[Rfam]
RNA sequence: AAACACCAGCCAGGCUGGUUGGUUCAGUUAAGCUUUCAGCUUCGAGAAUUUUAUGAAAGCUAUUGAUUUGUUAAAAUAAAUCACAGUCUGGUGACUGCAAAAGUUAAACGAGAAAUCAAAAG
Numbered sequence: 001a002a003a004c005a006c007c008a009g010c011c012a013g014g015c016u017g018g019u020u021g022g023u024u025c026a027g028u029u030a031a032g033c034u035u036u037c038a039g040c041u042u043c044g045a046g047a048a049u050u051u052u053a054u055g056a057a058a059g060c061u062a063u064u065g066a067u068u069u070g071u072u073a074a075a076a077u078a079a080a081u082c083a084c085a086g087u088c089u090g091g092u093g094a095c096u097g098c099a100a101a102a103g104u105u106a107a108a109c110g111a112g113a114a115a116u117c118a119a120a121a122g
Stems, first nucleotide, its partner, number of pairs: 001024002004021001005019006030042005060122002063119006069110004075105003081100001084097004
Notes: The family of this 122-nucleotide RNA from Escherichia coli is "STnc490 Hfq binding RNA". Pairs were carried over by alignment from the consensus structure, which was predicted with WAR. The family's RNA type in Rfam is small RNA. Rfam's curators put it in the seed alignment. The organism belongs to Escherichia, within Bacteria.